Rfam assigns this 114-nucleotide sequence to the family "LOOT RNA". Pairs were carried over by alignment from the consensus structure, which is taken from published work. It is annotated as a small RNA. The sequence is in the family's curated seed alignment.
[Rfam]
RNA sequence: GGCCUAAACUAUUGAUAUUUCAGUGGCAUGGUCGCAAAUCGAAGAGUACAAACAACCCGUUAUCAGGGCGUACUCUUCGUUGCAUAGGGAAACUUAUGUAGGAGCUUCGGCUCU
Numbered sequence: 001g002g003c004c005u006a007a008a009c010u011a012u013u014g015a016u017a018u019u020u021c022a023g024u025g026g027c028a029u030g031g032u033c034g035c036a037a038a039u040c041g042a043a044g045a046g047u048a049c050a051a052a053c054a055a056c057c058c059g060u061u062a063u064c065a066g067g068g069c070g071u072a073c074u075c076u077u078c079g080u081u082g083c084a085u086a087g088g089g090a091a092a093c094u095u096a097u098g099u100a101g102g103a104g105c106u107u108c109g110g111c112u113c114u
Base pairs, nucleotide, nucleotide: 001033002032003031004030009026010025011024012023013022014021015020040079041078042077043076044075045074046073047072048071049070056068057067058066081100082099083098084097085096086095087094088093101114102113103112104111105110